[Rfam]
RNA sequence: CCCUGCGGGACGUCGGCUAAGACCAGCCACAUCGUGUGGCCAGCGCCGACACCAGCACGUCCUGUGCG
Numbered sequence: 001c002c003c004u005g006c007g008g009g010a011c012g013u014c015g016g017c018u019a020a021g022a023c024c025a026g027c028c029a030c031a032u033c034g035u036g037u038g039g040c041c042a043g044c045g046c047c048g049a050c051a052c053c054a055g056c057a058c059g060u061c062c063u064g065u066g067c068g
Stems, first nucleotide, its partner, number of pairs: 012050006026040005055067004
This 68-nucleotide sequence from Alteribacillus persepolensis belongs to the Rfam family "Bacillaceae-1 RNA". The organism belongs to Alteribacillus, within Bacteria. Pairs were carried over by alignment from the consensus structure, which is taken from published work.